mir-29 microRNA precursor family: a 70-nucleotide sequence from Cyprinodon variegatus. The match comes from Rfam's covariance-model search (60 bits). Rfam links the family to the GO terms RISC complex and gene silencing by miRNA. From the family's description: This family represents the microRNA (miRNA) precursors mir-29. On this family, see Ambros, Cell 2001: "microRNAs: tiny regulators with great potential".
RNA sequence: AGGAGCUGGUUUCAUGCGGUGGUUUAGAUGUUGGUUCCUGUCCUCUAGCACCAUAUGAAAUCAGUGUUCU
Numbered sequence: 001a002g003g004a005g006c007u008g009g010u011u012u013c014a015u016g017c018g019g020u021g022g023u024u025u026a027g028a029u030g031u032u033g034g035u036u037c038c039u040g041u042c043c044u045c046u047a048g049c050a051c052c053a054u055a056u057g058a059a060a061u062c063a064g065u066g067u068u069c070u
Stems, first nucleotide, its partner, number of pairs: 001070004005065010016054001018052004025047004